[Rfam]
Shown here is a 115-nucleotide RNA sequence from Medicago truncatula, a member of the family "MIR2593 microRNA precursor family".

RNA sequence: UUACAAGAAACAAUUGACUUUUUAGAUUCAUUGAAUAAUUGAUGUAUUUGGUCUAUAUUCUAGGCCGAGUCCAUAAAUUAUUCAAUGAACCUAAAAAGUCAAUUCUUUCUUGUAA
Numbered sequence: 001u002u003a004c005a006a007g008a009a010a011c012a013a014u015u016g017a018c019u020u021u022u023u024a025g026a027u028u029c030a031u032u033g034a035a036u037a038a039u040u041g042a043u044g045u046a047u048u049u050g051g052u053c054u055a056u057a058u059u060c061u062a063g064g065c066c067g068a069g070u071c072c073a074u075a076a077a078u079u080a081u082u083c084a085a086u087g088a089a090c091c092u093a094a095a096a097a098g099u100c101a102a103u104u105c106u107u108u109c110u111u112g113u114a115a
Stems, first nucleotide, its partner, number of pairs: 002114006009107002012104002015101011027089014042074003049067004